A member of the RNA family "Small nucleolar RNA Z161/Z228" from Protea cynaroides, 102 nucleotides long. Rfam classes the family as a C/D-box small nucleolar RNA. A search with the family's covariance model found it, with a score of 57 bits. Its Rfam clan is "SNORD35 clan". Rfam links the family to the GO terms RNA processing and nucleolus. The family has 11 seed sequences and 630 matches in Rfam 15.1. A reference for the family is Chen et al. (2003), "The high diversity of snoRNAs in plants: identification and comparative study of 120 snoRNA genes from Oryza sativa", Nucleic Acids Res.
[Rfam]
RNA sequence: AAACCAGUUGAUGAGAUCGAUUGGAUUUAAUUUCUCACGACGGUCAUCUGAGACACUACUGUGUUAAUAUUGAUGCAAUAAUCCAAUGUUUCCCUGAUGGAU
Numbered sequence: 001a002a003a004c005c006a007g008u009u010g011a012u013g014a015g016a017u018c019g020a021u022u023g024g025a026u027u028u029a030a031u032u033u034c035u036c037a038c039g040a041c042g043g044u045c046a047u048c049u050g051a052g053a054c055a056c057u058a059c060u061g062u063g064u065u066a067a068u069a070u071u072g073a074u075g076c077a078a079u080a081a082u083c084c085a086a087u088g089u090u091u092c093c094c095u096g097a098u099g100g101a102u
Stems, first nucleotide, its partner, number of pairs: 001102001004099001054063003